A member of the RNA family "mir-9193 microRNA precursor family" from Myotis lucifugus, 126 nucleotides long.
Gene Ontology terms of the family: miRNA-mediated post-transcriptional gene silencing and RISC complex.

[Rfam]
Nucleotides: 126
Base pairs, nucleotide, nucleotide: 003124004123006121008119009118010117012115013114014113015112016111017110018109019108020107021106022105023104024103025102027100028099029098030097031096032095033094
Number, partner (000 for none) and nucleotide at each position: 001000c002000a003124u004123g005000c006121a007000c008119c009118a010117g011000u012115g013114g014113g015112g016111u017110c018109c019108c020107u021106c022105g023104g024103c025102c026000u027100g028099g029098c030097c031096u032095g033094c034000a035000c036000c037000c038000u039000c040000u041000c042000a043000c044000a045000a046000u047000c048000u049000g050000g051000g052000a053000c054000c055000c056000c057000u058000c059000g060000a061000g062000g063000g064000a065000u066000g067000u068000c069000a070000g071000a072000g073000a074000g075000c076000c077000g078000g079000u080000u081000u082000u083000g084000g085000c086000c087000c088000a089000a090000u091000c092000c093000c094033g095032c096031a097030g098029g099028c100027c101000a102025g103024g104023c105022c106021g107020a108019g109018g110017g111016a112015c113014c114013c115012c116000a117010c118009u119008g120000g121006u122000g123004u124003a125000c126000g